[Rfam]
RNA sequence: AGUCUGUUUCAGGGCGGGGUGUGAUUCCCCACCGGCGGUAAGCGGCCCAAAGGGCCGUAAGCCCGCGACCGGCUGCUUGGGCAGCCGCUGAUCCGGUGUGAAUCCGGGGCCGACGGUAUAGUCCGGAUGAAAGAAACGGAAA
Numbered sequence: 001a002g003u004c005u006g007u008u009u010c011a012g013g014g015c016g017g018g019g020u021g022u023g024a025u026u027c028c029c030c031a032c033c034g035g036c037g038g039u040a041a042g043c044g045g046c047c048c049a050a051a052g053g054g055c056c057g058u059a060a061g062c063c064c065g066c067g068a069c070c071g072g073c074u075g076c077u078u079g080g081g082c083a084g085c086c087g088c089u090g091a092u093c094c095g096g097u098g099u100g101a102a103u104c105c106g107g108g109g110c111c112g113a114c115g116g117u118a119u120a121g122u123c124c125g126g127a128u129g130a131a132a133g134a135a136a137c138g139g140a141a142a
Stems, first nucleotide, its partner, number of pairs: 003140008017029003031122002033112002035066004061110002070087002092108005114125003

Rfam assigns this 142-nucleotide RNA from Subdoligranulum variabile to the family "FMN riboswitch aptamer (RFN element)". It scores 115 bits against the family's covariance model. The base pairs follow the family's consensus structure, which is taken from published work. The organism belongs to Subdoligranulum variabile, within Bacteria.